This 107-nucleotide RNA from Nakamurella panacisegetis belongs to the Rfam family "SAM (S-adenosyl methionine) riboswitch aptamer". On this family, see Weinberg et al., RNA 2008: "The aptamer core of SAM-IV riboswitches mimics the ligand-binding site of SAM-I riboswitches". Rfam 15.1 lists 2,360 matches to the family in 1,305 species. The source organism's lineage runs through Bacteria, Actinomycetota, Actinomycetes, Nakamurellales and Nakamurella. Clan: SAM clan.
RNA sequence: GCUCAAGAGUGUCAGCGUCAAGAUCCGGCUCGCUGACCGGCAACCCUUCUCCGCGAUGGGGUGCCCCGGAGAUAGAGCCGGCCGGCUUGUCCGGCAAUUCGCGGCUC
Number, nucleotide and partner (000 for none) at each position: 001g078002c077003u076004c075005a000006a000007g000008a000009g038010u000011g037012u036013c035014a034015g033016c032017g000018u000019c000020a000021a030022g029023a000024u000025c000026c000027g000028g000029c022030u021031c000032g016033c015034u014035g013036a012037c011038c009039g065040g064041c063042a000043a000044c061045c060046c059047u000048u056049c055050u000051c000052c000053g000054c000055g049056a048057u000058g000059g046060g045061g044062u000063g041064c040065c039066c000067c000068g000069g000070a000071g000072a000073u000074a000075g004076a003077g002078c001079c000080g000081g095082c094083c093084g092085g091086c000087u000088u000089g000090u000091c085092c084093g083094g082095c081096a000097a000098u000099u000100c000101g000102c000103g000104g000105c000106u000107c000